Annotation
The family of this 141-nucleotide RNA sequence from Laceyella tengchongensis is "Ribosomal protein L20 leader".
[Rfam]
RNA sequence: UGUUCAAAGCAGAGGCGCCCGCUUCUCACCUGGUCGACGCGAACGCAGUUGGCAGGUUAAUGGUUCGGAAGACACAUUUCCUAUGUUUGCGCAGGGAAAUUGAAUGUGGGCGUUAUCUGACGCCCACAUUUUUUAUUUGCC
Numbered sequence: 001u002g003u004u005c006a007a008a009g010c011a012g013a014g015g016c017g018c019c020c021g022c023u024u025c026u027c028a029c030c031u032g033g034u035c036g037a038c039g040c041g042a043a044c045g046c047a048g049u050u051g052g053c054a055g056g057u058u059a060a061u062g063g064u065u066c067g068g069a070a071g072a073c074a075c076a077u078u079u080c081c082u083a084u085g086u087u088u089g090c091g092c093a094g095g096g097a098a099a100u101u102g103a104a105u106g107u108g109g110g111c112g113u114u115a116u117c118u119g120a121c122g123c124c125c126a127c128a129u130u131u132u133u134u135a136u137u138u139g140c141c
Stems, first nucleotide, its partner, number of pairs: 011026006028057003036050003039046002105128010